[Rfam]
RNA sequence: CCGUGCUAGAUGGGGAGUUAGCGGUGCCCUGUAACCCACAAUCCGCUAUAGUGGGGUUGAAUUCCUAGCCUAGGCCUUAGUUUAUAGAGCCUGCCUAUGUAAGUGGUGUUGAUGGCAAGGUCCCAUACGACGUAAGUGUGUGAACCUCGUCAGGUCCGGAAGGAAGCAGCGAUAAGCAAUUACUGCGUGUGAUAUGGAUCAAUCUUGCCAGAGCUAACUGCAUAGUAACGUCUAUAAGCUAUUGUCAAAGCUAGGUGCACGG
Numbered sequence: 001c002c003g004u005g006c007u008a009g010a011u012g013g014g015g016a017g018u019u020a021g022c023g024g025u026g027c028c029c030u031g032u033a034a035c036c037c038a039c040a041a042u043c044c045g046c047u048a049u050a051g052u053g054g055g056g057u058u059g060a061a062u063u064c065c066u067a068g069c070c071u072a073g074g075c076c077u078u079a080g081u082u083u084a085u086a087g088a089g090c091c092u093g094c095c096u097a098u099g100u101a102a103g104u105g106g107u108g109u110u111g112a113u114g115g116c117a118a119g120g121u122c123c124c125a126u127a128c129g130a131c132g133u134a135a136g137u138g139u140g141u142g143a144a145c146c147u148c149g150u151c152a153g154g155u156c157c158g159g160a161a162g163g164a165a166g167c168a169g170c171g172a173u174a175a176g177c178a179a180u181u182a183c184u185g186c187g188u189g190u191g192a193u194a195u196g197g198a199u200c201a202a203u204c205u206u207g208c209c210a211g212a213g214c215u216a217a218c219u220g221c222a223u224a225g226u227a228a229c230g231u232c233u234a235u236a237a238g239c240u241a242u243u244g245u246c247a248a249a250g251c252u253a254g255g256u257g258c259a260c261g262g
Base pairs, nucleotide, nucleotide: 001262002261003260004259005258006257009058010057011056012030013029014028015027017025018024019023035055036054037053038052039051064255065254066253067252068251069250073246074245075244079240080239081238082237083236084235085234086233087232088231092230093229095225096224097223098222099221100220103218104217105215106214107213113210114209115208116207117206118205119204120203121202123197124196125195126194127193128189129188131187132186133185134184136180139178140177141176147172148171149170150169155164156163157162
The record is a 262-nucleotide RNA sequence from Clostridium isatidis, which matches "Bacterial large signal recognition particle RNA" in Rfam. Its family is annotated with SRP-dependent cotranslational protein targeting to membrane, signal sequence recognition and signal recognition particle, plasma membrane targeting in the Gene Ontology. NCBI's taxonomy places the organism under Bacteria, Bacillati, Bacillota, Eubacteriales, Clostridium. The signal recognition particle (SRP) is a universally conserved ribonucleoprotein involved in the co-translational targeting of proteins to membranes. The family's RNA type in Rfam is non-coding RNA gene.